[Rfam]
Annotation: A member of the RNA family "Ribosomal protein L20 leader" from Gracilibacillus ureilyticus, 134 nucleotides long. Pairs were carried over by alignment from the consensus structure, which was predicted with CMfinder. About the family: This family is a putative r-protein leader autoregulatory structure found in B. subtilis and other low-GC Gram-positive bacteria. It is located in the 5' untranslated regions of mRNAs encoding initiation factor 3 followed by ribosomal proteins L35 and L20 (infC-rpmI-rplT). A Rho-independent transcription terminator structure that is probably involved in regulation is included at the 3' end. It is annotated as a cis-regulatory leader. A reference for the family is Zengel and Lindahl (1994), "Diverse mechanisms for regulating ribosomal protein synthesis in Escherichia coli", Prog Nucleic Acid Res Mol Biol.
RNA sequence: AAAGACAAGUAGAAGCACCCGCUUCUCACCUGAUUGACACAUCAGUAGUAGUUAACAGGUAUUUAUCCGAUGUUAUUUGUAAUGAAAUCAAGGAUGUGUGGGUGCCGUAUGCGUACCGACACUUUUUUUAUGGA
Numbered sequence: 001a002a003a004g005a006c007a008a009g010u011a012g013a014a015g016c017a018c019c020c021g022c023u024u025c026u027c028a029c030c031u032g033a034u035u036g037a038c039a040c041a042u043c044a045g046u047a048g049u050a051g052u053u054a055a056c057a058g059g060u061a062u063u064u065a066u067c068c069g070a071u072g073u074u075a076u077u078u079g080u081a082a083u084g085a086a087a088u089c090a091a092g093g094a095u096g097u098g099u100g101g102g103u104g105c106c107g108u109a110u111g112c113g114u115a116c117c118g119a120c121a122c123u124u125u126u127u128u129u130a131u132g133g134a
Stems, first nucleotide, its partner, number of pairs: 011026006028060003036053003039049002097121003101117005